Source information: Rfam assigns this 335-nucleotide sequence from Arboricoccus pini to the family "Alphaproteobacteria transfer-messenger RNA". The match comes from Rfam's covariance-model search (243 bits). From the family's description: Bacterial tmRNA, also known as 10Sa RNA or SsrA, is named for its dual tRNA and mRNA-like properties. Its role is to liberate the mRNA from a stalled ribosome. To accomplish this part of the tmRNA is used as a reading frame that ends in a translation stop signal. The family's consensus secondary structure is taken from published work.

RNA sequence: GCCGUUGCAUGCACCUCGGAACCGCUUAUAUUCAAAGACGCCGGUAGCUCCGGCUAUGGCGAUAAACGCCGUUCAGAAUAAGCGUUACGGACCCGGGGGCAGAGCCCGGCGCCUCCACCAUCCUUGACUGAGGCCGAGGUGAUUGCUCGGCUGGGACCGAGGGGGCGAAUUAGGAUCGACGUGCGUGGUAAAGGGACGGCUUUUGCCCGGCAUGGUUCCGCCGUUAUCGGGCCGAAUACAAGUGCCAACGAUAACCGUUCGGUCACCGCUCUCGCUGCCUAAUCAGCAGUGAAAAGCGCGGCUCGGGGGGCGCCGGGCAACAGAAGCCCCCCACU
Dot-bracket structure: .......................................(((((.....)))))...(((((.....(((((((........(((.(((...(((((.......)))))(((((((............................................)))))))............))))))........)))))))..)))))[[[[.(((.(((]]]].....))))))................................................................[[[[..((((((.]]]]...........))))))...